[Rfam]
RNA sequence: UUUUCUGGGUGUUGUCCACAAGGUCCUAGGACAUUGCAGGAACAUGAUGAUUGGAGCUCGCAUGAUUCAUGAUUAAUGGCUCUGCGUAAUCAGGCCUUGCAGCACCCUGAUUGCUCCUAUCUGAU
Numbered sequence: 001u002u003u004u005c006u007g008g009g010u011g012u013u014g015u016c017c018a019c020a021a022g023g024u025c026c027u028a029g030g031a032c033a034u035u036g037c038a039g040g041a042a043c044a045u046g047a048u049g050a051u052u053g054g055a056g057c058u059c060g061c062a063u064g065a066u067u068c069a070u071g072a073u074u075a076a077u078g079g080c081u082c083u084g085c086g087u088a089a090u091c092a093g094g095c096c097u098u099g100c101a102g103c104a105c106c107c108u109g110a111u112u113g114c115u116c117c118u119a120u121c122u123g124a125u
Stems, first nucleotide, its partner, number of pairs: 002033001003031007064082002067079003070075001086114009